[Rfam]
RNA sequence: AUUCCUUCUGUCAUGUAUCCUCGAUUAAUGCAUCCUCAUAUGCUUGA
Numbered sequence: 001a002u003u004c005c006u007u008c009u010g011u012c013a014u015g016u017a018u019c020c021u022c023g024a025u026u027a028a029u030g031c032a033u034c035c036u037c038a039u040a041u042g043c044u045u046g047a
Stems, first nucleotide, its partner, number of pairs: 010025003032044001034042001

Background
Rfam assigns this 47-nucleotide RNA from Glycine max to the family "Plastid-ycf3 group II-D1 intron". The literature on the family includes a 2023 paper in Plant Commun by Richter et al., "Retrograde signaling in plants: A critical review focusing on the GUN pathway and beyond". Lineage of the source: Eukaryota > Mesangiospermae > Papilionoideae > Phaseoleae > Glycine subgen. Soja. Gene Ontology term of the family: Group II intron splicing. It scores 61 bits against the family's covariance model.